[Rfam]
RNA sequence: GUGGCGGGCCGUGACUGGCGCUGAGGUGGAGCACCACCGGGGAGCGGUCCAUGACUCCGAAGCCGUGCGCCUGGGCGAUUCCC
Numbered sequence: 001g002u003g004g005c006g007g008g009c010c011g012u013g014a015c016u017g018g019c020g021c022u023g024a025g026g027u028g029g030a031g032c033a034c035c036a037c038c039g040g041g042g043a044g045c046g047g048u049c050c051a052u053g054a055c056u057c058c059g060a061a062g063c064c065g066u067g068c069g070c071c072u073g074g075g076c077g078a079u080u081c082c083c
Base pairs, nucleotide, nucleotide: 004052006050007049008048009047010046011045012044015041016040017071018070019069020068021067026037027036028035029034062076063075064074

Shown here is an 83-nucleotide RNA from Streptomyces griseorubiginosus, a member of the family "ZMP/ZTP riboswitch aptamer (pfl RNA motif)". The match comes from Rfam's covariance-model search (54 bits). The family's consensus secondary structure is taken from published work.